[Rfam]
The record is an 84-nucleotide sequence from Cyanistes caeruleus, which matches "mir-184 microRNA precursor family" in Rfam. The organism belongs to Cyanistes, within Eukaryota. A reference for the family is Chen et al. (2005), "The developmental miRNA profiles of zebrafish as determined by small RNA cloning", Genes Dev. The base pairs follow the family's consensus structure, which was predicted with PFOLD. Rfam 15.1 lists 948 matches to the family in 823 species.
RNA sequence: CCACUCUCGUGCCCUUAUCACUUUUCCAGCCCAGCUUCUUCUCUCUGACUGUUGGACGGAGAACUGAUAAGGGUGUGCGAGUGA
Numbered sequence: 001c002c003a004c005u006c007u008c009g010u011g012c013c014c015u016u017a018u019c020a021c022u023u024u025u026c027c028a029g030c031c032c033a034g035c036u037u038c039u040u041c042u043c044u045c046u047g048a049c050u051g052u053u054g055g056a057c058g059g060a061g062a063a064c065u066g067a068u069a070a071g072g073g074u075g076u077g078c079g080a081g082u083g084a
Stems, first nucleotide, its partner, number of pairs: 012073009022063006030055002